Source information: This 114-nucleotide RNA from Bucco capensis belongs to the Rfam family "Potassium channel RNA editing signal". Pairs were carried over by alignment from the consensus structure, which is taken from published work. A search with the family's covariance model found it, with a score of 94 bits. It is annotated as a cis-regulatory element.
RNA sequence: GUAGGCUAUGGGGAUAUGGCUCCUGUGACUAUUGGGGGGAGGCUGGUGGGUUCCCUGUGUGCCAUUGCUGGGGUGCUCACCAUCUCCCUCCCCGUGCCCGUUAUCGUCUCCAAC
Numbered sequence: 001g002u003a004g005g006c007u008a009u010g011g012g013g014a015u016a017u018g019g020c021u022c023c024u025g026u027g028a029c030u031a032u033u034g035g036g037g038g039g040a041g042g043c044u045g046g047u048g049g050g051u052u053c054c055c056u057g058u059g060u061g062c063c064a065u066u067g068c069u070g071g072g073g074u075g076c077u078c079a080c081c082a083u084c085u086c087c088c089u090c091c092c093c094g095u096g097c098c099c100g101u102u103a104u105c106g107u108c109u110c111c112a113a114c
Stems, first nucleotide, its partner, number of pairs: 001114002004111002008107004013102003018097001021094001037077002040074001049063003